Shown here is a 165-nucleotide sequence from Rhizopus microsporus, a member of the family "small nucleolar RNA snR35".
[Rfam]
RNA sequence: UCUGUGCGGCGAUUACCCUACAACUUGCGUGUUACUCGCGGGCUAUUUUUUUAUGGGCUUGUUUGAGUGUCAAACCAGGUUAAGAAAUAGGUAGAAUGUCUUAACGCCCUAUUCUGACCGCUUGUUUUAUCACAGGCAGUCAGAGGGCUGGUGAUUCUUAUAUUU
Numbered sequence: 001u002c003u004g005u006g007c008g009g010c011g012a013u014u015a016c017c018c019u020a021c022a023a024c025u026u027g028c029g030u031g032u033u034a035c036u037c038g039c040g041g042g043c044u045a046u047u048u049u050u051u052u053a054u055g056g057g058c059u060u061g062u063u064u065g066a067g068u069g070u071c072a073a074a075c076c077a078g079g080u081u082a083a084g085a086a087a088u089a090g091g092u093a094g095a096a097u098g099u100c101u102u103a104a105c106g107c108c109c110u111a112u113u114c115u116g117a118c119c120g121c122u123u124g125u126u127u128u129a130u131c132a133c134a135g136g137c138a139g140u141c142a143g144a145g146g147g148c149u150g151g152u153g154a155u156u157c158u159u160a161u162a163u164u165u
Stems, first nucleotide, its partner, number of pairs: 022081006034068005042058003093158005110146001112145007121136002
Annotation
By type it is an H/ACA-box small nucleolar RNA. The family is grouped with related families in Rfam's "SNORA13 clan". The organism belongs to Rhizopus microsporus, within Eukaryota.